[Rfam]
RNA sequence: AAAUCCUUUAACAUCGUCCCGUGAGGCGAUUAAGGAGAGCUUAAAAAAACAGGCAAUAGCGGUGGGUUAAUUGUCUCUAUUUUUCAGUGUCUCCUUGGAAACAAGGGGAUUUUUUGUAU
Numbered sequence: 001a002a003a004u005c006c007u008u009u010a011a012c013a014u015c016g017u018c019c020c021g022u023g024a025g026g027c028g029a030u031u032a033a034g035g036a037g038a039g040c041u042u043a044a045a046a047a048a049a050c051a052g053g054c055a056a057u058a059g060c061g062g063u064g065g066g067u068u069a070a071u072u073g074u075c076u077c078u079a080u081u082u083u084u085c086a087g088u089g090u091c092u093c094c095u096u097g098g099a100a101a102c103a104a105g106g107g108g109a110u111u112u113u114u115u116g117u118a119u
Stems, first nucleotide, its partner, number of pairs: 004036005013030006043084005049078001051076006086113002089110009
Rfam assigns this 119-nucleotide RNA sequence from Streptococcus hillyeri to the family "PyrR binding site". A search with the family's covariance model found it, with a score of 58 bits. Taxonomically the source falls in Streptococcus (Bacteria, Bacillati, Bacillota, Streptococcaceae). Gene Ontology terms of the family: pyrimidine nucleobase biosynthetic process and pyrimidine nucleobase transport. It is annotated as a cis-regulatory element. On this family, see Bonner et al., Nucleic Acids Res 2001: "Molecular recognition of pyr mRNA by the Bacillus subtilis attenuation regulatory protein PyrR".